Shown here is a 77-nucleotide RNA sequence from Vigna radiata, a member of the family "Small nucleolar RNA Z105". A reference for the family is Chen et al. (2003), "The high diversity of snoRNAs in plants: identification and comparative study of 120 snoRNA genes from Oryza sativa", Nucleic Acids Res. Rfam links the family to the GO terms nucleolus and RNA processing. The organism belongs to Vigna radiata, within Eukaryota.
[Rfam]
RNA sequence: UUGGCAUGAUGAUGAUAGUUUUGAAUAUGUUCAUUUGAUUAUUCAUAUGAUGAAUCUAAUCCUCCUACUCAUUCUGA
Dot-bracket structure: .....((((.....................((..(...........)....))...............)))).....